[Rfam]
RNA sequence: GCUGGGAGUUGUAGCGUGCUCCUGUAAUCCAGCUAUUGGAGGCUUAGCGUGUUGGAGGUUUUGAGGUCGGGGGUUCUGCGGCCCGUUGAUCUAUGUCGAUCGGGUGUCCGCACUAAGUCCGGCAUCAAUAUGGCGGCCCGGAGGGAGCUCCGAGUUGCCAGGUUGUCUAAGGAGGGACGAACCGGCCCAGGGUGGAAACACAGCAGGCAAAAGUCCCCGUGUCGGCCAGUAGUGGGAUCGCACCCGUGAAUAGCCAGCGAGUUGUAGCCUGACCAACAUAUGCCGACGCAUGUUUUU
Numbered sequence: 001g002c003u004g005g006g007a008g009u010u011g012u013a014g015c016g017u018g019c020u021c022c023u024g025u026a027a028u029c030c031a032g033c034u035a036u037u038g039g040a041g042g043c044u045u046a047g048c049g050u051g052u053u054g055g056a057g058g059u060u061u062u063g064a065g066g067u068c069g070g071g072g073g074u075u076c077u078g079c080g081g082c083c084c085g086u087u088g089a090u091c092u093a094u095g096u097c098g099a100u101c102g103g104g105u106g107u108c109c110g111c112a113c114u115a116a117g118u119c120c121g122g123c124a125u126c127a128a129u130a131u132g133g134c135g136g137c138c139c140g141g142a143g144g145g146a147g148c149u150c151c152g153a154g155u156u157g158c159c160a161g162g163u164u165g166u167c168u169a170a171g172g173a174g175g176g177a178c179g180a181a182c183c184g185g186c187c188c189a190g191g192g193u194g195g196a197a198a199c200a201c202a203g204c205a206g207g208c209a210a211a212a213g214u215c216c217c218c219g220u221g222u223c224g225g226c227c228a229g230u231a232g233u234g235g236g237a238u239c240g241c242a243c244c245c246g247u248g249a250a251u252a253g254c255c256a257g258c259g260a261g262u263u264g265u266a267g268c269c270u271g272a273c274c275a276a277c278a279u280a281u282g283c284c285g286a287c288g289c290a291u292g293u294u295u296u297u
Base pairs, nucleotide, nucleotide: 001043002042003041004023005022006021007020008019009018028040029039030038046294047293048292049291050290051289052288057284058283059282061280065274066273067272068271069270070269071268076267077266078265079264080263081262082261084259085258086257087256088255091253092252093251094250096248101246102245103244104243105242106241107240108236109235111234112233113232114231115230117227119225120224121223122222123221124220125219126165127164128163129162131160132159133158134157135156136155137154139152140151141150142149143148166172167171174217175216176215177214178213185208186207187206192201193200194199
Rfam assigns this 297-nucleotide sequence from Helobdella robusta to the family "Metazoan signal recognition particle RNA". NCBI's taxonomy places the organism under Eukaryota, Opisthokonta, Spiralia, Rhynchobdellida, Helobdella. For this family Rfam cites "Towards the structure of the mammalian signal recognition particle" (Wild et al., Curr Opin Struct Biol, 2002). Pairs were carried over by alignment from the consensus structure, which is taken from published work. Gene Ontology terms of the family: signal recognition particle, endoplasmic reticulum targeting and SRP-dependent cotranslational protein targeting to membrane, signal sequence recognition. Rfam's curators write: The signal recognition particle (SRP) is a universally conserved ribonucleoprotein.